This 51-nucleotide sequence from Mojavia pulchra belongs to the Rfam family "Nitrogen stress-induced RNA 1". The organism belongs to Mojavia pulchra, within Bacteria. By type it is a small RNA. On this family, see Ionescu et al., J Mol Biol 2010: "Heterocyst-specific transcription of NsiR1, a non-coding RNA encoded in a tandem array of direct repeats in cyanobacteria".

RNA sequence: UGGUAGAUGCACCCUGGUUAAGCCCUGGAGAACCCUCUAGGGCAUUUUUUA
Numbered sequence: 001u002g003g004u005a006g007a008u009g010c011a012c013c014c015u016g017g018u019u020a021a022g023c024c025c026u027g028g029a030g031a032a033c034c035c036u037c038u039a040g041g042g043c044a045u046u047u048u049u050u051a
Stems, first nucleotide, its partner, number of pairs: 002013003022043009